[Rfam]
RNA sequence: GUUCCCAAUGAUGGUAACUUUGACCAUGCUAAUACUGAUUAUAGUUGAUGAUUGGAUAUCCAUUUUAAUAUGCUGAGGGAACC
Numbered sequence: 001g002u003u004c005c006c007a008a009u010g011a012u013g014g015u016a017a018c019u020u021u022g023a024c025c026a027u028g029c030u031a032a033u034a035c036u037g038a039u040u041a042u043a044g045u046u047g048a049u050g051a052u053u054g055g056a057u058a059u060c061c062a063u064u065u066u067a068a069u070a071u072g073c074u075g076a077g078g079g080a081a082c083c
Base pairs, nucleotide, nucleotide: 001082002081003080004079005078